Annotation: Shown here is a 118-nucleotide RNA from Streptomyces sp. DvalAA-14, a member of the family "SAM (S-adenosyl methionine) riboswitch aptamer". The match comes from Rfam's covariance-model search (104 bits). For this family Rfam cites "The aptamer core of SAM-IV riboswitches mimics the ligand-binding site of SAM-I riboswitches" (Weinberg et al., RNA, 2008). NCBI's taxonomy places the organism under Bacteria, Bacillati, Actinomycetota, Streptomycetaceae, Streptomyces. Gene Ontology terms of the family: S-adenosylmethionine metabolic process and regulation of gene expression.
[Rfam]
RNA sequence: GGUCACGAGUGACAGCGUCAAGGCCCCGGCUCGCUGUCCGGCAACCCUCCGUCCGAGGUGGGGUGCCCCGGGUGAAGACCAGGCUGUGAACAAGCGAGGUUCGCAGCAAGCCGGACUU
Numbered sequence: 001g002g003u004c005a006c007g008a009g010u011g012a013c014a015g016c017g018u019c020a021a022g023g024c025c026c027c028g029g030c031u032c033g034c035u036g037u038c039c040g041g042c043a044a045c046c047c048u049c050c051g052u053c054c055g056a057g058g059u060g061g062g063g064u065g066c067c068c069c070g071g072g073u074g075a076a077g078a079c080c081a082g083g084c085u086g087u088g089a090a091c092a093a094g095c096g097a098g099g100u101u102c103g104c105a106g107c108a109a110g111c112c113g114g115a116c117u118u
Base pairs, nucleotide, nucleotide: 001080002079003078004077009039011038012037013036014035015034016033021031022030040067041066042065045063046062047061049058050057083107084106085105086104087103088102089101090100091099